[Rfam]
RNA: MIR5084 microRNA precursor family
RNA sequence: CGUCGGGUUAGGAUCCUCUGCAGUACUGUACGGUGCUGUACAGUCACUGUCAUGUGGGACCUGGUCACAUAUGUCAUCGACACUACAGCACCAUACAGUACUGCAGAGGAUCUUAACCCCCC
Numbered sequence: 001c002g003u004c005g006g007g008u009u010a011g012g013a014u015c016c017u018c019u020g021c022a023g024u025a026c027u028g029u030a031c032g033g034u035g036c037u038g039u040a041c042a043g044u045c046a047c048u049g050u051c052a053u054g055u056g057g058g059a060c061c062u063g064g065u066c067a068c069a070u071a072u073g074u075c076a077u078c079g080a081c082a083c084u085a086c087a088g089c090a091c092c093a094u095a096c097a098g099u100a101c102u103g104c105a106g107a108g109g110a111u112c113u114u115a116a117c118c119c120c121c122c
Base pairs, nucleotide, nucleotide: 002122005119006118007117008116009115011113012112013111014110015109016108017107018106019105020104021103022102023101024100025099026098027097028096029095030094032092033091034090035089036088037087038086039085040084051073052072053071054070055069056068058066059065060064